Rfam assigns this 175-nucleotide RNA from Rhodanobacter lindaniclasticus to the family "FMN riboswitch aptamer (RFN element)". A search with the family's covariance model found it, with a score of 95 bits.
[Rfam]
RNA sequence: AAACGUCUUCAGGGCGGGGCGAAAUUCCCCACCGGCGGUAGGUUCCUCGGAACGAGCCCGCGAGCGCUCCCGGCAGCAUCGGGAGGUCAGCAGAUCCGGUCCGAUGCCGGAGCCGACGGUCAAGGUUGUACCGGCUCGCCGGCACGGCUCACAGUCCGGAUGAAAGAAGACGGCC
Numbered sequence: 001a002a003a004c005g006u007c008u009u010c011a012g013g014g015c016g017g018g019g020c021g022a023a024a025u026u027c028c029c030c031a032c033c034g035g036c037g038g039u040a041g042g043u044u045c046c047u048c049g050g051a052a053c054g055a056g057c058c059c060g061c062g063a064g065c066g067c068u069c070c071c072g073g074c075a076g077c078a079u080c081g082g083g084a085g086g087u088c089a090g091c092a093g094a095u096c097c098g099g100u101c102c103g104a105u106g107c108c109g110g111a112g113c114c115g116a117c118g119g120u121c122a123a124g125g126u127u128g129u130a131c132c133g134g135c136u137c138g139c140c141g142g143c144a145c146g147g148c149u150c151a152c153a154g155u156c157c158g159g160a161u162g163a164a165a166g167a168a169g170a171c172g173g174c175c
Stems, first nucleotide, its partner, number of pairs: 004172007017029003033115002035061004056113002064091002095111005117158003